Rfam assigns this 62-nucleotide RNA to the family "L31-Actinobacteria ribosomal protein leader".

[Rfam]
RNA sequence: GCGGUACCGGUUCACGCCACGAGGGCCCUGCUGACGGCAGGAUGCCCGGCGACCCGGCGACC
Number, nucleotide and partner (000 for none) at each position: 001g000002c000003g062004g061005u060006a000007c057008c056009g055010g054011u000012u000013c000014a000015c051016g050017c049018c048019a000020c000021g000022a000023g047024g046025g045026c044027c000028c000029u000030g000031c000032u000033g000034a000035c000036g000037g000038c000039a000040g000041g000042a000043u000044g026045c025046c024047c023048g018049g017050c016051g015052a000053c000054c010055c009056g008057g007058c000059g000060a005061c004062c003
Background:
It is annotated as a cis-regulatory leader.